The family of this 367-nucleotide sequence from Oleiphilus sp. HI0043 is "Bacterial RNase P class A".
The match comes from Rfam's covariance-model search (317 bits).

RNA sequence: UGAGUUUGCCAGGCAAUCGCUGCUUAGCUGAGUUUUCAGCAUGAGGAGAGGAAAGUCCGGGCUCCACAGAGCAGAGUGCCAGGUAACCCCUGGGGGGCGAAAGCCUACGGAAAGUGCAGCAGAAAGUGAACCGCCUAAGUUCUAGCCUUGGCUAGGAACGGUAAGGGUGAAAAGGUGCGGUAAGAGCGCACCGCAUGACUGGCAACAGUUCAUGGCGAUGGUAAACCCCUCUCGGAGCAAAACCAAAUAGGAAUUCGUUGGCGUGGCUCGCGCUGAAUUCGGGUAGGUUGCUUGAACUAAAUGGUGACGUUUAGUCUAGAUGAAUGAUUGUCCACGACAGAACCCGGCUUAUCGGCAAACUCUUUAC
Numbered sequence: 001u002g003a004g005u006u007u008g009c010c011a012g013g014c015a016a017u018c019g020c021u022g023c024u025u026a027g028c029u030g031a032g033u034u035u036u037c038a039g040c041a042u043g044a045g046g047a048g049a050g051g052a053a054a055g056u057c058c059g060g061g062c063u064c065c066a067c068a069g070a071g072c073a074g075a076g077u078g079c080c081a082g083g084u085a086a087c088c089c090c091u092g093g094g095g096g097g098c099g100a101a102a103g104c105c106u107a108c109g110g111a112a113a114g115u116g117c118a119g120c121a122g123a124a125a126g127u128g129a130a131c132c133g134c135c136u137a138a139g140u141u142c143u144a145g146c147c148u149u150g151g152c153u154a155g156g157a158a159c160g161g162u163a164a165g166g167g168u169g170a171a172a173a174g175g176u177g178c179g180g181u182a183a184g185a186g187c188g189c190a191c192c193g194c195a196u197g198a199c200u201g202g203c204a205a206c207a208g209u210u211c212a213u214g215g216c217g218a219u220g221g222u223a224a225a226c227c228c229c230u231c232u233c234g235g236a237g238c239a240a241a242a243c244c245a246a247a248u249a250g251g252a253a254u255u256c257g258u259u260g261g262c263g264u265g266g267c268u269c270g271c272g273c274u275g276a277a278u279u280c281g282g283g284u285a286g287g288u289u290g291c292u293u294g295a296a297c298u299a300a301a302u303g304g305u306g307a308c309g310u311u312u313a314g315u316c317u318a319g320a321u322g323a324a325u326g327a328u329u330g331u332c333c334a335c336g337a338c339a340g341a342a343c344c345c346g347g348c349u350u351a352u353c354g355g356c357a358a359a360c361u362c363u364u365u366a367c
Stems, first nucleotide, its partner, number of pairs: 002362009011352001012332007020048002023045004053350003057347005062237004069269004074233003078229001079093005094108001095106004109228002114226002116222002131166002133162003139159004174192006193216001194214005199208003241289004251280006260274005296315008
The family's RNA type in Rfam is ribozyme.